[Rfam]
RNA sequence: AUAGAGUGGGAACAAAAAGCCAACAUAAUAAGUAUGGAAAUACCAAUAAAUCAACGUUUUUCAACUUAUGAAAUGCUUGGUUCUCAUUAAAAAUGAUAUAUUUCCCUACCACAAAUCCCUGUCAAGAUGAUGCUUGACAGGGAUUUGUUU
Number, nucleotide and partner (000 for none) at each position: 001a000002u000003a000004g000005a000006g000007u000008g106009g105010g104011a103012a102013c000014a000015a000016a000017a000018a000019g000020c000021c000022a000023a000024c000025a000026u000027a000028a000029u000030a000031a000032g000033u000034a000035u000036g000037g000038a000039a000040a000041u000042a000043c000044c000045a000046a000047u000048a000049a082050a081051u080052c079053a078054a077055c000056g076057u075058u000059u073060u072061u071062c070063a069064a000065c000066u000067u000068a000069u063070g062071a061072a060073a059074u000075g057076c056077u054078u053079g052080g051081u050082u049083c000084u096085c095086a094087u093088u000089a000090a000091a000092a000093a087094u086095g085096a084097u000098a000099u000100a000101u000102u012103u011104c010105c009106c008107u000108a000109c000110c000111a000112c000113a146114a145115a144116u143117c142118c141119c140120u139121g138122u137123c136124a135125a134126g133127a000128u000129g000130a000131u000132g000133c126134u125135u124136g123137a122138c121139a120140g119141g118142g117143a116144u115145u114146u113147g000148u000149u000150u000

Listeria sRNA rli38: a 150-nucleotide RNA from Listeria monocytogenes. The organism belongs to Listeria monocytogenes, within Bacteria. Pairs were carried over by alignment from the consensus structure, which was predicted with RNAalifold. It is annotated as a small RNA.